Histone 3' UTR stem-loop: a 47-nucleotide sequence from Coregonus sp. 'balchen'. The family's consensus secondary structure is taken from published work. It scores 38 bits against the family's covariance model.
RNA sequence: CCAAAGGCUCUUUUAAGAGCCAUCUAAUAAAUUAAAAUAAGUGGGUG
Numbered sequence: 001c002c003a004a005a006g007g008c009u010c011u012u013u014u015a016a017g018a019g020c021c022a023u024c025u026a027a028u029a030a031a032u033u034a035a036a037a038u039a040a041g042u043g044g045g046u047g
Stems, first nucleotide, its partner, number of pairs: 006021006